[Rfam]
RNA sequence: CUUGCCAUUGCGGGAGAGACCGUUCGCCGGCGCCGAAGGAGCAACCGCCCCGGAAACUCUCAGGCAAAAGGACCGCAGGGCAUCA
Numbered sequence: 001c002u003u004g005c006c007a008u009u010g011c012g013g014g015a016g017a018g019a020c021c022g023u024u025c026g027c028c029g030g031c032g033c034c035g036a037a038g039g040a041g042c043a044a045c046c047g048c049c050c051c052g053g054a055a056a057c058u059c060u061c062a063g064g065c066a067a068a069a070g071g072a073c074c075g076c077a078g079g080g081c082a083u084c085a
Base pairs, nucleotide, nucleotide: 006080008078009077010076011075012074013073020030021029022028032065033064034063035061036060039059040058041057045053046052
Dot-bracket structure: .....(.((((((......(((.....))).(((((..(((...((.....))...))))).))).......)))))).).....

Record summary: Glycine riboswitch aptamer: an 85-nucleotide sequence from Sphingobium sp. CAP-1. Taxonomically the source falls in Sphingobium (Bacteria, Pseudomonadota, Alphaproteobacteria, Sphingobiaceae). Pairs were carried over by alignment from the consensus structure.